[Rfam]
RNA sequence: AUUCGAUAAUGGCAAACCUGGAGAAAUCCAGCGACGCAAAGCUAAAGGGGCUAAAUUGUUAAUAAACAGUAUGCUAGCCAGCUGCCGAA
Numbered sequence: 001a002u003u004c005g006a007u008a009a010u011g012g013c014a015a016a017c018c019u020g021g022a023g024a025a026a027u028c029c030a031g032c033g034a035c036g037c038a039a040a041g042c043u044a045a046a047g048g049g050g051c052u053a054a055a056u057u058g059u060u061a062a063u064a065a066a067c068a069g070u071a072u073g074c075u076a077g078c079c080a081g082c083u084g085c086c087g088a089a
Stems, first nucleotide, its partner, number of pairs: 012037002018031005040083004047079002049075003056069004
Annotation:
Shown here is an 89-nucleotide RNA from Neobacillus piezotolerans, a member of the family "c-di-GMP-I riboswitch aptamer".